[Rfam]
RNA: Salmonella enterica Typhi npcRNA 44
RNA sequence: CUUUAACAAUCCGGAACAAGCUGAGAAUUGAAACGACGCGUCGCUUUCAUUUUCCGUAAUUAAGAAUGAAACUAACUAGCGAUGCGUUCGAGUCUCUCAAAUGCUCACGACAGCGUGCCGUCCUUCGGGACGCUUGUG
Numbered sequence: 001c002u003u004u005a006a007c008a009a010u011c012c013g014g015a016a017c018a019a020g021c022u023g024a025g026a027a028u029u030g031a032a033a034c035g036a037c038g039c040g041u042c043g044c045u046u047u048c049a050u051u052u053u054c055c056g057u058a059a060u061u062a063a064g065a066a067u068g069a070a071a072c073u074a075a076c077u078a079g080c081g082a083u084g085c086g087u088u089c090g091a092g093u094c095u096c097u098c099a100a101a102u103g104c105u106c107a108c109g110a111c112a113g114c115g116u117g118c119c120g121u122c123c124u125u126c127g128g129g130a131c132g133c134u135u136g137u138g
Stems, first nucleotide, its partner, number of pairs: 020108001023106003027102003034090003038085007113137003117133001119132002